[Rfam]
RNA sequence: AUAUUAGAAGGGAAUGAAGUUCUCCCUUAGAAAAAUCUAAAACCGCAUUUAUGCUGAUGACUUCUGUAACUAU
Numbered sequence: 001a002u003a004u005u006a007g008a009a010g011g012g013a014a015u016g017a018a019g020u021u022c023u024c025c026c027u028u029a030g031a032a033a034a035a036u037c038u039a040a041a042a043c044c045g046c047a048u049u050u051a052u053g054c055u056g057a058u059g060a061c062u063u064c065u066g067u068a069a070c071u072a073u
Stems, first nucleotide, its partner, number of pairs: 010025003016064006045054003
Dot-bracket structure: .........[[[...((((((.]]]...................(((....)))....)))))).........
RNA: Fluoride riboswitch aptamer (crcB RNA motif)
Organism: Anaerococcus hydrogenalis